[Rfam]
RNA sequence: GUUUUUUACCCAAGUAUCAAAGGUACUAGGCGUUCUAUGACCAACUUUAAAGUUGUGUUAUAAAAUCAUAAAUUUUUGGAUCAGCAUUUUCGGGGAAUAUCCGGAAAUGCAAA
Numbered sequence: 001g002u003u004u005u006u007u008a009c010c011c012a013a014g015u016a017u018c019a020a021a022g023g024u025a026c027u028a029g030g031c032g033u034u035c036u037a038u039g040a041c042c043a044a045c046u047u048u049a050a051a052g053u054u055g056u057g058u059u060a061u062a063a064a065a066u067c068a069u070a071a072a073u074u075u076u077u078g079g080a081u082c083a084g085c086a087u088u089u090u091c092g093g094g095g096a097a098u099a100u101c102c103g104g105a106a107a108u109g110c111a112a113a
Base pairs, nucleotide, nucleotide: 008033009030010029013027014026016024018023038060039059040058041057042055043054044053045052046051088109090107094102095101

This 113-nucleotide RNA sequence from Panagrolaimus sp. PS1159 belongs to the Rfam family "SL2 RNA".
Clan: SL clan.
Rfam describes the family as follows. This family represents SL2 RNA. SL2 RNA is involved in trans splicing in lower eukaryotes. Trans-splicing is a form of RNA processing. The acquisition of a spliced leader from a SL RNA is a intra-molecular reaction which precisely joins exons derived from separately transcribed RNAs. Approximately 25% of C. elegans genes are organised into polycistronic transcription units and the presence of SL2 on an mRNA is an indication the the gene is in an operon.
By type it is a non-coding RNA gene.
A reference for the family is Evans and Blumenthal (2000), "trans splicing of polycistronic Caenorhabditis elegans pre-mRNAs: analysis of the SL2 RNA", Mol Cell Biol.
The family's consensus secondary structure is taken from published work.
It scores 54 bits against the family's covariance model.
The source organism's lineage runs through Eukaryota, Bilateria, Ecdysozoa, Rhabditida and Panagrolaimus.